RNA sequence: AUUGAUACCUGGCAGGGGAGAUACCAUGAUCACAAAGGUGGUUUUCUCAGGGUGAGGCCCAUCCAUUGCACUCUGGGUGUGUUGGCCCCUGUGAUUUCCCCAAAUACAGGAAACUCGACUGCAUAAUGUGUGGUAGUGGGAGACUGAGUUUGUGCUUUCCCCUA
Numbered sequence: 001a002u003u004g005a006u007a008c009c010u011g012g013c014a015g016g017g018g019a020g021a022u023a024c025c026a027u028g029a030u031c032a033c034a035a036a037g038g039u040g041g042u043u044u045u046c047u048c049a050g051g052g053u054g055a056g057g058c059c060c061a062u063c064c065a066u067u068g069c070a071c072u073c074u075g076g077g078u079g080u081g082u083u084g085g086c087c088c089c090u091g092u093g094a095u096u097u098c099c100c101c102a103a104a105u106a107c108a109g110g111a112a113a114c115u116c117g118a119c120u121g122c123a124u125a126a127u128g129u130g131u132g133g134u135a136g137u138g139g140g141a142g143a144c145u146g147a148g149u150u151u152g153u154g155c156u157u158u159c160c161c162c163u164a
Stems, first nucleotide, its partner, number of pairs: 012122004016048006023042005049090004054086001056083003060079005092117003095113003099110002138163003142159002146155001148153001

Rfam assigns this 164-nucleotide sequence from Homo sapiens to the family "U1 spliceosomal RNA". The family's consensus secondary structure is taken from published work. Clan: U1 clan. The source organism's lineage runs through Eukaryota, Deuterostomia, Amniota, Hominidae and Homo. The family's RNA type in Rfam is spliceosomal small nuclear RNA. The match comes from Rfam's covariance-model search (124 bits).